Shown here is a 53-nucleotide RNA from Natronococcus amylolyticus, a member of the family "leuA-Halobacteria RNA". The family's consensus secondary structure is taken from published work. The sequence is in the family's curated seed alignment.
RNA sequence: GGAGUCCGAGGAUAGAGGAAGUCGGGGCAACCCGGCUGGGCGCGAAAUUCCAG
Number, nucleotide and partner (000 for none) at each position: 001g000002g000003a000004g000005u000006c000007c000008g000009a000010g000011g000012a000013u000014a000015g000016a000017g000018g000019a000020a037021g036022u035023c034024g033025g032026g031027g000028c000029a000030a000031c026032c025033c024034g023035g022036c021037u020038g000039g000040g000041c000042g000043c000044g000045a000046a000047a000048u000049u000050c000051c000052a000053g000
It is annotated as a cis-regulatory element.